[Rfam]
RNA sequence: UGAGUGGGCAAGACGAUCGCUGGCGGCGUUCCUUUCCAAGGGGCGACCGCUGGAGGAAAGUCCGGGCUCCGCAGGAUAGGAUGGUCGAUAACGUCGACCGGCCGCGAGGCUAGGGAAAGUGCAACAGAAAGCAGACCGCCGAACGGUUCGACCGCGAUCGGUCUUUUCGAUCGAUCGCAGCGAAUGCGUGGUAAGGGUGAAACGGUGCGGUAAGAGCGCACCAGCGGUCGAGGUGACUCGAUCGGCUCGGUAAACCCCAUCCGGAGCUAGACCAAACAGAGUGCAGCGGAGGACGGGGCCUUUGGCCGCGAACCUCCGCGCCGUGCGAUCCGUACGGCCAUCGACAUUCGGGUAGGUCGCGAUGGAGGCGGCGAGCAAUCGCCGUGCACAGACAAAUGGUCGUCGGCCGGAGCGUCACGUUCCGGUUACAGAACCCGGCUUACUACCCCACUCACGGC
Numbered sequence: 001u002g003a004g005u006g007g008g009c010a011a012g013a014c015g016a017u018c019g020c021u022g023g024c025g026g027c028g029u030u031c032c033u034u035u036c037c038a039a040g041g042g043g044c045g046a047c048c049g050c051u052g053g054a055g056g057a058a059a060g061u062c063c064g065g066g067c068u069c070c071g072c073a074g075g076a077u078a079g080g081a082u083g084g085u086c087g088a089u090a091a092c093g094u095c096g097a098c099c100g101g102c103c104g105c106g107a108g109g110c111u112a113g114g115g116a117a118a119g120u121g122c123a124a125c126a127g128a129a130a131g132c133a134g135a136c137c138g139c140c141g142a143a144c145g146g147u148u149c150g151a152c153c154g155c156g157a158u159c160g161g162u163c164u165u166u167u168c169g170a171u172c173g174a175u176c177g178c179a180g181c182g183a184a185u186g187c188g189u190g191g192u193a194a195g196g197g198u199g200a201a202a203c204g205g206u207g208c209g210g211u212a213a214g215a216g217c218g219c220a221c222c223a224g225c226g227g228u229c230g231a232g233g234u235g236a237c238u239c240g241a242u243c244g245g246c247u248c249g250g251u252a253a254a255c256c257c258c259a260u261c262c263g264g265a266g267c268u269a270g271a272c273c274a275a276a277c278a279g280a281g282u283g284c285a286g287c288g289g290a291g292g293a294c295g296g297g298g299c300c301u302u303u304g305g306c307c308g309c310g311a312a313c314c315u316c317c318g319c320g321c322c323g324u325g326c327g328a329u330c331c332g333u334a335c336g337g338c339c340a341u342c343g344a345c346a347u348u349c350g351g352g353u354a355g356g357u358c359g360c361g362a363u364g365g366a367g368g369c370g371g372c373g374a375g376c377a378a379u380c381g382c383c384g385u386g387c388a389c390a391g392a393c394a395a396a397u398g399g400u401c402g403u404c405g406g407c408c409g410g411a412g413c414g415u416c417a418c419g420u421u422c423c424g425g426u427u428a429c430a431g432a433a434c435c436c437g438g439c440u441u442a443c444u445a446c447c448c449c450a451c452u453c454a455c456g457g458c
Base pairs, nucleotide, nucleotide: 001454002453003452004451005450006449007448008447012404013403014402015401016400017399018398020053021052022051023050024049025048026047058441059440060439062438063437064436065435066434067266068265069264070263079262080261081260082259083258084098085097086096087095088094099113100111101110102109103108114257115256119255120254121251122250136196137195138192139191140190144186145185204222205221206220207219208218209217224246225244226243227242228241229240230239231238232237270358271357272356273355279349280348281347282346283345322336323335324334325333326332367387368385369384370383371382372381373380374379
RNA: Bacterial RNase P class A
Organism: Novipirellula artificiosorum